[Rfam]
RNA sequence: CCACCGCUGUGUCUUAUGGCUUUCUAUUCCUAUGUGAGUUCUCUCUAACACGUCAUGUAGGGUUUAAAGCCAUUGGACACAGAGUUGC
Numbered sequence: 001c002c003a004c005c006g007c008u009g010u011g012u013c014u015u016a017u018g019g020c021u022u023u024c025u026a027u028u029c030c031u032a033u034g035u036g037a038g039u040u041c042u043c044u045c046u047a048a049c050a051c052g053u054c055a056u057g058u059a060g061g062g063u064u065u066a067a068a069g070c071c072a073u074u075g076g077a078c079a080c081a082g083a084g085u086u087g088c
Stems, first nucleotide, its partner, number of pairs: 002087002005084001007082008016073008026064001028062010
A member of the RNA family "mir-135 microRNA precursor family" from Betta splendens, 88 nucleotides long.
The literature on the family includes a 2004 paper in Proc Natl Acad Sci U S A by Kim et al., "Identification of many microRNAs that copurify with polyribosomes in mammalian neurons".
The match comes from Rfam's covariance-model search (78 bits).
Rfam 15.1 lists 2,125 matches to the family in 647 species.
The base pairs follow the family's consensus structure, which was predicted with PFOLD.
Gene Ontology terms of the family: gene silencing by miRNA and RISC complex.